[Rfam]
RNA sequence: CAUGUCGCUGAUGAUAUCUUGGCUCCCUCUACUGAGUUUUAAUGUGGAAGUCUGCCAUUGUUACCCAAUUUCUAUCUGAGAUGUU
Numbered sequence: 001c002a003u004g005u006c007g008c009u010g011a012u013g014a015u016a017u018c019u020u021g022g023c024u025c026c027c028u029c030u031a032c033u034g035a036g037u038u039u040u041a042a043u044g045u046g047g048a049a050g051u052c053u054g055c056c057a058u059u060g061u062u063a064c065c066c067a068a069u070u071u072c073u074a075u076c077u078g079a080g081a082u083g084u085u
Stems, first nucleotide, its partner, number of pairs: 002084005
Small nucleolar RNA SNORD100: an 85-nucleotide RNA sequence from Tetraodon nigroviridis. The family is grouped with related families in Rfam's "SNORD100 clan". The family's RNA type in Rfam is C/D-box small nucleolar RNA. The source organism's lineage runs through Eukaryota, Clupeocephala, Eurypterygia, Tetraodontidae and Tetraodon. The base pairs follow the family's consensus structure, which was predicted with RNAalifold.